Rfam assigns this 87-nucleotide RNA from Solanum commersonii to the family "MIR8024 microRNA precursor family".
[Rfam]
RNA sequence: UUGAAGAAUUUUGAAGACUUUAAUUUGUAUACUUGGAAAAUUUGAAGACUUUAGCUUGUAUACUUGGAAUAUUUGAAGACUUCAGCU
Numbered sequence: 001u002u003g004a005a006g007a008a009u010u011u012u013g014a015a016g017a018c019u020u021u022a023a024u025u026u027g028u029a030u031a032c033u034u035g036g037a038a039a040a041u042u043u044g045a046a047g048a049c050u051u052u053a054g055c056u057u058g059u060a061u062a063c064u065u066g067g068a069a070u071a072u073u074u075g076a077a078g079a080c081u082u083c084a085g086c087u
Stems, first nucleotide, its partner, number of pairs: 001085006010077006019068004026060004033054005